Shown here is a 167-nucleotide RNA from Microcaecilia unicolor, a member of the family "U1 spliceosomal RNA". From the family's description: U1 is a small nuclear RNA (snRNA) component of the spliceosome (involved in pre-mRNA splicing). Its 5' end forms complementary base pairs with the 5' splice junction, thus defining the 5' donor site of an intron. There are significant differences in sequence and secondary structure between metazoan and yeast U1 snRNAs, the latter being much longer (568 nucleotides as compared to 164 nucleotides in human). Nevertheless, secondary structure predictions suggest that all U1 snRNAs share a 'common core' consisting of helices I, II, the proximal region of III, and IV. This family does not contain the larger yeast sequences. By type it is a spliceosomal small nuclear RNA. Taxonomically the source falls in Microcaecilia (Eukaryota, Opisthokonta, Deuterostomia, Sarcopterygii).
RNA sequence: UUACUUACCUGGCAGGGGAGAUUGGUCCGUGAUCCAGAAGGUGGCGCUCCCAGGGUGAGGUACGGCCAUUGCACUCAGGCUGUGCUGACCCCUGUGAUUUCCCCACAUGCGGGAAACUCGACUGUAUAAUUUCUGGUAGUGGGGGACUGCGUUUGCACUUAUUUUCA
Numbered sequence: 001u002u003a004c005u006u007a008c009c010u011g012g013c014a015g016g017g018g019a020g021a022u023u024g025g026u027c028c029g030u031g032a033u034c035c036a037g038a039a040g041g042u043g044g045c046g047c048u049c050c051c052a053g054g055g056u057g058a059g060g061u062a063c064g065g066c067c068a069u070u071g072c073a074c075u076c077a078g079g080c081u082g083u084g085c086u087g088a089c090c091c092c093u094g095u096g097a098u099u100u101c102c103c104c105a106c107a108u109g110c111g112g113g114a115a116a117c118u119c120g121a122c123u124g125u126a127u128a129a130u131u132u133c134u135g136g137u138a139g140u141g142g143g144g145g146a147c148u149g150c151g152u153u154u155g156c157a158c159u160u161a162u163u164u165u166c167a
Stems, first nucleotide, its partner, number of pairs: 012125004016051005027044004052093004057089001059086003063082005095120003098116003102112002141166005149158001151156001

Annotation: Its Rfam clan is "U1 clan". The family's consensus secondary structure is taken from published work. On this family, see Pomeranz Krummel et al., Nature 2009: "Crystal structure of human spliceosomal U1 snRNP at 5.5 A resolution".